[Rfam]
The record is a 139-nucleotide RNA sequence from Xylanimonas allomyrinae, which matches "FMN riboswitch aptamer (RFN element)" in Rfam.
RNA sequence: ACGUGCUCCGGGGUCGGUGAAAAUCCGAACCGGCGGUGACAGCCCGCGACCCGCGCCCGCACCCGACUACGGGGAAGGCUCGGUUGACCUGGUGGAACUCCAGGGCCGACGGUCACAGUCCGGAUGGGAGGCAGCACGG
Number, nucleotide and partner (000 for none) at each position: 001a000002c138003g137004u136005g135006c134007u133008c130009c000010g000011g000012g000013g000014u000015c027016g026017g025018u000019g000020a000021a000022a000023a000024u000025c017026c016027g015028a000029a119030c118031c108032g107033g047034c046035g045036g044037u000038g000039a000040c000041a000042g106043c105044c036045c035046g034047c033048g000049a000050c000051c083052c082053g000054c000055g000056c000057c000058c000059g000060c000061a000062c000063c000064c000065g000066a000067c000068u000069a000070c000071g000072g000073g000074g000075a000076a000077g000078g000079c000080u000081c000082g052083g051084u000085u000086g000087a000088c104089c103090u102091g101092g100093u000094g000095g000096a000097a000098c000099u000100c092101c091102a090103g089104g088105g043106c042107c032108g031109a000110c122111g121112g120113u000114c000115a000116c000117a000118g030119u029120c112121c111122g110123g000124a000125u000126g000127g000128g000129a000130g008131g000132c000133a007134g006135c005136a004137c003138g002139g000
The match comes from Rfam's covariance-model search (88 bits). The base pairs follow the family's consensus structure, which is taken from published work.